[Rfam]
RNA sequence: UCCGACAAUGGCAAAAUCGGGGUGACCCGAUGACGCAAAGCCACGGGUCCCAUUGCAAGGACAGCCGGGUUAUCGAAG
Numbered sequence: 001u002c003c004g005a006c007a008a009u010g011g012c013a014a015a016a017u018c019g020g021g022g023u024g025a026c027c028c029g030a031u032g033a034c035g036c037a038a039a040g041c042c043a044c045g046g047g048u049c050c051c052a053u054u055g056c057a058a059g060g061a062c063a064g065c066c067g068g069g070u071u072a073u074c075g076a077a078g
Base pairs, nucleotide, nucleotide: 011036012035016031017030018029019028020027021026039071040070041069042068044067045066046065047062048061049060050059